RNA sequence: AAGCAUUACAGAUGUUUUAGAAUUUGUCUAGCAGGUUUUCCUGUUUGUACCAGAAAACCCCU
Numbered sequence: 001a002a003g004c005a006u007u008a009c010a011g012a013u014g015u016u017u018u019a020g021a022a023u024u025u026g027u028c029u030a031g032c033a034g035g036u037u038u039u040c041c042u043g044u045u046u047g048u049a050c051c052a053g054a055a056a057a058c059c060c061c062u
Base pairs, nucleotide, nucleotide: 034059035058036057037056038055039054040053043050044049
Shown here is a 62-nucleotide RNA from Nomascus leucogenys, a member of the family "U7 small nuclear RNA". For this family Rfam cites "Identification of the human U7 snRNP as one of several factors involved in the 3' end maturation of histone premessenger RNA's" (Mowry and Steitz, Science, 1987).